[Rfam]
RNA sequence: AAUGAUGGUUUUGCCGCUUUUCAUUAUAGUUCUUAUGGGACUUUUUCUACAAAAAAUAGGCUCCAUAAUUCCUACAGUGGAUUUACCCACUACAGAAAUUAUAGAGCC
Numbered sequence: 001a002a003u004g005a006u007g008g009u010u011u012u013g014c015c016g017c018u019u020u021u022c023a024u025u026a027u028a029g030u031u032c033u034u035a036u037g038g039g040a041c042u043u044u045u046u047c048u049a050c051a052a053a054a055a056a057u058a059g060g061c062u063c064c065a066u067a068a069u070u071c072c073u074a075c076a077g078u079g080g081a082u083u084u085a086c087c088c089a090c091u092a093c094a095g096a097a098a099u100u101a102u103a104g105a106g107c108c
Stems, first nucleotide, its partner, number of pairs: 001025005008017002028043002031040002059108005065102006072095001076091005

About this RNA:
Rfam assigns this 108-nucleotide RNA from Streptococcus sp. DD10 to the family "Streptococcus RNA 266". By type it is a small RNA. For this family Rfam cites "Identification of 88 regulatory small RNAs in the TIGR4 strain of the human pathogen Streptococcus pneumoniae" (Acebo et al., RNA, 2012). The match comes from Rfam's covariance-model search (99 bits).